RNA sequence: UGGCACCCAAUGUCGGACACGAGAAUGGGGGACUCUAUGAGGGACACUGUUCGUGGGCCCAAAGUAGAAAAAGGAAAAGAAAAUAGAGGACCUGACAACGUGGGAGCCUGCCACACCGCGCUGAACCUCGGUCAGUGAACAGCGAUUAUGAGACAAGAAAUUAGCCAGCAUGAGAUUUUUGUUGAAAAUUUAGUAAAAGCUUUAAAGGCACAGGGGUGAAGGUGAAUAUUGAGCAAUUAUGCCAAUACUUCGAUUUUAUAAAAGAGGUUUGUCCUU
Numbered sequence: 001u002g003g004c005a006c007c008c009a010a011u012g013u014c015g016g017a018c019a020c021g022a023g024a025a026u027g028g029g030g031g032a033c034u035c036u037a038u039g040a041g042g043g044a045c046a047c048u049g050u051u052c053g054u055g056g057g058c059c060c061a062a063a064g065u066a067g068a069a070a071a072a073g074g075a076a077a078a079g080a081a082a083a084u085a086g087a088g089g090a091c092c093u094g095a096c097a098a099c100g101u102g103g104g105a106g107c108c109u110g111c112c113a114c115a116c117c118g119c120g121c122u123g124a125a126c127c128u129c130g131g132u133c134a135g136u137g138a139a140c141a142g143c144g145a146u147u148a149u150g151a152g153a154c155a156a157g158a159a160a161u162u163a164g165c166c167a168g169c170a171u172g173a174g175a176u177u178u179u180u181g182u183u184g185a186a187a188a189u190u191u192a193g194u195a196a197a198a199g200c201u202u203u204a205a206a207g208g209c210a211c212a213g214g215g216g217u218g219a220a221g222g223u224g225a226a227u228a229u230u231g232a233g234c235a236a237u238u239a240u241g242c243c244a245a246u247a248c249u250u251c252g253a254u255u256u257u258a259u260a261a262a263a264g265a266g267g268u269u270u271g272u273c274c275u276u
Stems, first nucleotide, its partner, number of pairs: 006030003013024002035049001038046001086129004094121001096118001100114004136155002140152001143150002161204001163202001164200002211252001213250003216246002220238002223235002261276002264273002
RNA: Mason-Pfizer monkey virus packaging signal
Organism: Cavia porcellus